[Rfam]
RNA sequence: GGCGAUGAAAUCCUUCCACCAACUCCUUGUGGUAUAAGCUGGUAAAAAGGAUCUUAAUGGUCCUUUUGCCAACGGUGGGGG
Number, nucleotide and partner (000 for none) at each position: 001g000002g000003c000004g000005a000006u000007g000008a000009a000010a000011u000012c000013c081014u080015u079016c078017c077018a076019c075020c074021a000022a033023c032024u000025c000026c000027u000028u000029g000030u000031g000032g023033u022034a000035u000036a000037a000038g000039c000040u000041g000042g000043u000044a000045a067046a066047a065048a064049g063050g062051a061052u060053c059054u000055u000056a000057a000058u000059g053060g052061u051062c050063c049064u048065u047066u046067u045068g000069c000070c000071a000072a000073c000074g020075g019076u018077g017078g016079g015080g014081g013
Description: A member of the RNA family "drz-agam-1 ribozyme" from Labeo rohita, 81 nucleotides long. A search with the family's covariance model found it, with a score of 43 bits. Its family is annotated with catalytic activity in the Gene Ontology. Lineage of the source: Eukaryota > Metazoa > Clupeocephala > Labeoninae > Labeo.